The family of this 68-nucleotide RNA sequence from Thermomonospora cellulosilytica is "ASdes TB sRNA".

[Rfam]
RNA sequence: AGCUCCACCGGGUCGAUCGCCCGGGUCACCGUCAGGUAGUCGCGGAUGACGAUGCUGUGCCGGUUCUC
Number, nucleotide and partner (000 for none) at each position: 001a000002g000003c000004u063005c062006c000007a000008c059009c000010g000011g030012g029013u028014c000015g027016a026017u025018c024019g000020c000021c000022c000023g000024g018025g017026u016027c015028a013029c012030c011031g000032u000033c000034a000035g056036g055037u054038a053039g000040u052041c051042g050043c000044g000045g000046a000047u000048g000049a000050c042051g041052a040053u038054g037055c036056u035057g000058u000059g008060c000061c000062g005063g004064u000065u000066c000067u000068c000

Lineage of the source: Bacteria > Bacillati > Actinomycetes > Streptosporangiales > Thermomonospora. By type it is a small RNA.